[Rfam]
RNA sequence: AAGUCAUUCUAAGUAGUAGUGCCGCAGGUAACAACAAUUGAGUUUACCUGUUCUCUGCUACUUAACAUGACCA
Numbered sequence: 001a002a003g004u005c006a007u008u009c010u011a012a013g014u015a016g017u018a019g020u021g022c023c024g025c026a027g028g029u030a031a032c033a034a035c036a037a038u039u040g041a042g043u044u045u046a047c048c049u050g051u052u053c054u055c056u057g058c059u060a061c062u063u064a065a066c067a068u069g070a071c072c073a
Stems, first nucleotide, its partner, number of pairs: 003071005010064010024051007

The family of this 73-nucleotide RNA from Brugia malayi is "mir-252 microRNA precursor family". The literature on the family includes a 2009 paper in BMC Genomics by Li et al., "Direct sequencing and expression analysis of a large number of miRNAs in Aedes aegypti and a multi-species survey of novel mosquito miRNAs". The organism belongs to Brugia, within Eukaryota.